[Rfam]
RNA sequence: CUUGACCGAGCCGAUCCACAACGGACGGUCCGCGGCGAUCUCCUUGCCAUAGGUGGCCAGCAGCGCCUGGACCUC
Numbered sequence: 001c002u003u004g005a006c007c008g009a010g011c012c013g014a015u016c017c018a019c020a021a022c023g024g025a026c027g028g029u030c031c032g033c034g035g036c037g038a039u040c041u042c043c044u045u046g047c048c049a050u051a052g053g054u055g056g057c058c059a060g061c062a063g064c065g066c067c068u069g070g071a072c073c074u075c
Stems, first nucleotide, its partner, number of pairs: 015025003030070002036065002043060002047056003
Rfam assigns this 75-nucleotide RNA sequence from Amycolatopsis saalfeldensis to the family "ASpks TB sRNA". The match comes from Rfam's covariance-model search (68 bits). Rfam 15.1 lists 9,052 matches to the family in 683 species.